Source information: A member of the RNA family "FMN riboswitch aptamer (RFN element)" from Hathewaya proteolytica, 115 nucleotides long. The organism belongs to Hathewaya proteolytica, within Bacteria.
RNA sequence: UUUACUCUUCAGGGCGGGGUUAAAUUCCCCACCGGCGGUAUAGCCCGCGAGCCGAAAGGCAUGAUUUGGUGUGACUCCAAAGCCGACAGUAUAGUCUGGAUAGAAGAAGAGACGU
Number, nucleotide and partner (000 for none) at each position: 001u000002u000003u000004a000005c111006u110007c109008u108009u107010c106011a000012g000013g000014g000015c000016g000017g029018g028019g027020u000021u000022a000023a000024a000025u000026u000027c019028c018029c017030c000031a095032c094033c085034g084035g048036c047037g046038g045039u000040a000041u000042a000043g083044c082045c038046c037047g036048c035049g000050a000051g000052c000053c059054g000055a000056a000057a000058g000059g053060c000061a000062u000063g000064a000065u081066u080067u079068g078069g077070u000071g000072u000073g000074a000075c000076u000077c069078c068079a067080a066081a065082g044083c043084c034085g033086a000087c098088a097089g096090u000091a000092u000093a000094g032095u031096c089097u088098g087099g000100a000101u000102a000103g000104a000105a000106g010107a009108a008109g007110a006111g005112a000113c000114g000115u000